[Rfam]
The record is a 69-nucleotide sequence from Caecibacteroides pullorum, which matches "Fluoride riboswitch aptamer (crcB RNA motif)" in Rfam. Lineage of the source: Bacteria > Bacteroidia > Bacteroidales > Bacteroidaceae > Caecibacteroides.

RNA sequence: UUAAUCGGAGGGAAUGGGACUUCCCUGUUAUAAACCGCUAAUCAAGUAGCUGAUAGUUCCUGUUUGUAG
Numbered sequence: 001u002u003a004a005u006c007g008g009a010g011g012g013a014a015u016g017g018g019a020c021u022u023c024c025c026u027g028u029u030a031u032a033a034a035c036c037g038c039u040a041a042u043c044a045a046g047u048a049g050c051u052g053a054u055a056g057u058u059c060c061u062g063u064u065u066g067u068a069g
Base pairs, nucleotide, nucleotide: 010025011024012023013022016060017059018058019057020056021055037050038049039048040047